[Rfam]
RNA sequence: CCCCUUCAAAUUCACCUGCCACCGUCCUAUAUCUGCAUUGUCGCUUCGGCGACUAUGGGCAUAAACGCGCAUGUAAUAAGCGGAUCGGACCCGGGGGCGGUACCCGGCGGCUCCACCAAACAUCCCUUGUUGGGGGAUCAUGGGGCCGAAAUAGGAUCGACGAACGUGUAAAGAUGUAGCUUUGUCCCGGUGAGAUACCACCGUUAUCGGUUCACUAAGUACAAUUGCCAACAACAAUCGUGCUCCGGUUGCCGUUGCUGCGUAAGCAGUAACAAGACCGAAAUCUAAGUCCUUGCGCCUAGCAGUGUAAGGCGGGGUUCGCAGGUACCUGGCAACAGAAACCUGCACU
Numbered sequence: 001c002c003c004c005u006u007c008a009a010a011u012u013c014a015c016c017u018g019c020c021a022c023c024g025u026c027c028u029a030u031a032u033c034u035g036c037a038u039u040g041u042c043g044c045u046u047c048g049g050c051g052a053c054u055a056u057g058g059g060c061a062u063a064a065a066c067g068c069g070c071a072u073g074u075a076a077u078a079a080g081c082g083g084a085u086c087g088g089a090c091c092c093g094g095g096g097g098c099g100g101u102a103c104c105c106g107g108c109g110g111c112u113c114c115a116c117c118a119a120a121c122a123u124c125c126c127u128u129g130u131u132g133g134g135g136g137a138u139c140a141u142g143g144g145g146c147c148g149a150a151a152u153a154g155g156a157u158c159g160a161c162g163a164a165c166g167u168g169u170a171a172a173g174a175u176g177u178a179g180c181u182u183u184g185u186c187c188c189g190g191u192g193a194g195a196u197a198c199c200a201c202c203g204u205u206a207u208c209g210g211u212u213c214a215c216u217a218a219g220u221a222c223a224a225u226u227g228c229c230a231a232c233a234a235c236a237a238u239c240g241u242g243c244u245c246c247g248g249u250u251g252c253c254g255u256u257g258c259u260g261c262g263u264a265a266g267c268a269g270u271a272a273c274a275a276g277a278c279c280g281a282a283a284u285c286u287a288a289g290u291c292c293u294u295g296c297g298c299c300u301a302g303c304a305g306u307g308u309a310a311g312g313c314g315g316g317g318u319u320c321g322c323a324g325g326u327a328c329c330u331g332g333c334a335a336c337a338g339a340a341a342c343c344u345g346c347a348c349u
Stems, first nucleotide, its partner, number of pairs: 040053005057187005067180002069177004081166002085163003091107005108148007188203004194213002197211003315330004321346006
Alphaproteobacteria transfer-messenger RNA: a 349-nucleotide RNA sequence from Pseudooceanicola marinus. Pairs were carried over by alignment from the consensus structure, which is taken from published work.